This 457-nucleotide RNA sequence from Bombycilla garrulus belongs to the Rfam family "Vertebrate telomerase RNA". Pairs were carried over by alignment from the consensus structure, which is taken from published work. Rfam's curators write: Telomerase is a ribonucleoprotein reverse transcriptase that synthesises telomeric DNA. Telomerase RNAs differ greatly in sequence and structure between vertebrates, ciliates and yeasts, but they share a 5' pseudoknot structure close to the template sequence. Vertebrate telomerase RNAs have a 3' H/ACA snoRNA-like domain. The family's RNA type in Rfam is non-coding RNA gene. Its Rfam clan is "Telomerase clan".
[Rfam]
RNA sequence: UGUGCCGGGGGGGUAGAGGCCCCGUGGGCAACUAACCCUAAUGGCGGCCGCGUCCCUCACGCUCGCCUGCUGUUUUGCUCGCUGACUUUCAGCGGGCGAAGGGAGCGGCCCAUGGGAUGGGGGGCGGGGGGGACAGGGAAAAGAGUUCCGGCCUCAGAAAAAAGCCAGCGAGGGGGAUCUACACCCCGGCCCACCCUGGGGUCCCUGUCACUGCUCCGCAGCCGGGGAUGCUCCCGCCUCCGCCCCUCGUAGAGGCCGCGGUCGGAAGGCUCAGCGCCACUACCGCCGCGAAGAGUUCGUCUCUGUCAGCCUUGGCGGAGACCGGGGGCAGGCGGCCGGCCCGCCCACCCUGGGCAGCGGGACCUCAGCAGAACAAAACGGGCGCGGCGCCGCCGGGCGCUGAGCAGCCGCAGCUCCCUGCGACGUGGAGUGCGCGGCCGGAGCCGCCCCGACACCC
Numbered sequence: 001u002g003u004g005c006c007g008g009g010g011g012g013g014u015a016g017a018g019g020c021c022c023c024g025u026g027g028g029c030a031a032c033u034a035a036c037c038c039u040a041a042u043g044g045c046g047g048c049c050g051c052g053u054c055c056c057u058c059a060c061g062c063u064c065g066c067c068u069g070c071u072g073u074u075u076u077g078c079u080c081g082c083u084g085a086c087u088u089u090c091a092g093c094g095g096g097c098g099a100a101g102g103g104a105g106c107g108g109c110c111c112a113u114g115g116g117a118u119g120g121g122g123g124g125c126g127g128g129g130g131g132g133a134c135a136g137g138g139a140a141a142a143g144a145g146u147u148c149c150g151g152c153c154u155c156a157g158a159a160a161a162a163a164g165c166c167a168g169c170g171a172g173g174g175g176g177a178u179c180u181a182c183a184c185c186c187c188g189g190c191c192c193a194c195c196c197u198g199g200g201g202u203c204c205c206u207g208u209c210a211c212u213g214c215u216c217c218g219c220a221g222c223c224g225g226g227g228a229u230g231c232u233c234c235c236g237c238c239u240c241c242g243c244c245c246c247u248c249g250u251a252g253a254g255g256c257c258g259c260g261g262u263c264g265g266a267a268g269g270c271u272c273a274g275c276g277c278c279a280c281u282a283c284c285g286c287c288g289c290g291a292a293g294a295g296u297u298c299g300u301c302u303c304u305g306u307c308a309g310c311c312u313u314g315g316c317g318g319a320g321a322c323c324g325g326g327g328g329c330a331g332g333c334g335g336c337c338g339g340c341c342c343g344c345c346c347a348c349c350c351u352g353g354g355c356a357g358c359g360g361g362a363c364c365u366c367a368g369c370a371g372a373a374c375a376a377a378a379c380g381g382g383c384g385c386g387g388c389g390c391c392g393c394c395g396g397g398c399g400c401u402g403a404g405c406a407g408c409c410g411c412a413g414c415u416c417c418c419u420g421c422g423a424c425g426u427g428g429a430g431u432g433c434g435c436g437g438c439c440g441g442a443g444c445c446g447c448c449c450c451g452a453c454a455c456c457c
Stems, first nucleotide, its partner, number of pairs: 004190006011184001013182005020176004053104005064098009081169004086164001087162003196368007218344002221340005230329007239319005257290005263285003268278003292304004380449004386445003390441002408437004415430001417428002